Rfam assigns this 173-nucleotide sequence from Bauldia litoralis to the family "caulobacter sRNA CC2171". For this family Rfam cites "Small non-coding RNAs in Caulobacter crescentus" (Landt et al., Mol Microbiol, 2008). The base pairs follow the family's consensus structure, which was predicted with RNAalifold. NCBI's taxonomy places the organism under Bacteria, Pseudomonadota, Alphaproteobacteria, Kaistiaceae, Bauldia.

[Rfam]
RNA sequence: CAACAACUGAAAGGAGGUGAUCCAGUGUCUCAUUGUCAAACCCCGCGUGUGGCGGUGGACCUGAUCUGGAACCGUACUUCUUUCGAGGUGCGCGCCUCCUGACCGGGGUCGAGUUUCGCUCACACCGCACUCGCGGUUAAGGCAAUGGAAGGGCCGUCCCAAGGGGCGGCCCU
Numbered sequence: 001c002a003a004c005a006a007c008u009g010a011a012a013g014g015a016g017g018u019g020a021u022c023c024a025g026u027g028u029c030u031c032a033u034u035g036u037c038a039a040a041c042c043c044c045g046c047g048u049g050u051g052g053c054g055g056u057g058g059a060c061c062u063g064a065u066c067u068g069g070a071a072c073c074g075u076a077c078u079u080c081u082u083u084c085g086a087g088g089u090g091c092g093c094g095c096c097u098c099c100u101g102a103c104c105g106g107g108g109u110c111g112a113g114u115u116u117c118g119c120u121c122a123c124a125c126c127g128c129a130c131u132c133g134c135g136g137u138u139a140a141g142g143c144a145a146u147g148g149a150a151g152g153g154c155c156g157u158c159c160c161a162a163g164g165g166g167c168g169g170c171c172c173u
Stems, first nucleotide, its partner, number of pairs: 016023002031147007047066001050063002090119003095113001097111001098106002124137005150173010